[Rfam]
Overview
This 93-nucleotide RNA from Acetoanaerobium sticklandii belongs to the Rfam family "c-di-GMP-I riboswitch aptamer". The family's consensus secondary structure is taken from published work. The source organism's lineage runs through Bacteria, Bacillota, Clostridia, Filifactoraceae and Acetoanaerobium sticklandii. Its family is annotated with cyclic-di-GMP binding in the Gene Ontology.
RNA sequence: GUAUGAAAAAGGCAAACUACAGGAAACUGUAGGACGCAAAGCGAGGAGUCUAAGACUGAAUACUAACUCAGUUAUGAUAGUCCAGCCGCCAUA
Numbered sequence: 001g002u003a004u005g006a007a008a009a010a011g012g013c014a015a016a017c018u019a020c021a022g023g024a025a026a027c028u029g030u031a032g033g034a035c036g037c038a039a040a041g042c043g044a045g046g047a048g049u050c051u052a053a054g055a056c057u058g059a060a061u062a063c064u065a066a067c068u069c070a071g072u073u074a075u076g077a078u079a080g081u082c083c084a085g086c087c088g089c090c091a092u093a
Stems, first nucleotide, its partner, number of pairs: 012037002017032006041086002045083003048078003055072004